[Rfam]
RNA sequence: CCGGUUCAGCCACUAACCCACACAUGCGUCGACACGGUGACCUGGGUGCCCUUCGGGGUUGGUCAUUGGGGCGCAUGGAGGCCUAAC
Numbered sequence: 001c002c003g004g005u006u007c008a009g010c011c012a013c014u015a016a017c018c019c020a021c022a023c024a025u026g027c028g029u030c031g032a033c034a035c036g037g038u039g040a041c042c043u044g045g046g047u048g049c050c051c052u053u054c055g056g057g058g059u060u061g062g063u064c065a066u067u068g069g070g071g072c073g074c075a076u077g078g079a080g081g082c083c084u085a086a087c
Base pairs, nucleotide, nucleotide: 023077024076025075026074027073028072029071030070035068036067037066038065039064040063041062042061048059049058050057051056
The family of this 87-nucleotide RNA sequence from Pseudomonas sp. HAR-UPW-AIA-41 is "t44 RNA". By type it is a small RNA. Pairs were carried over by alignment from the consensus structure, which was predicted with LocARNA.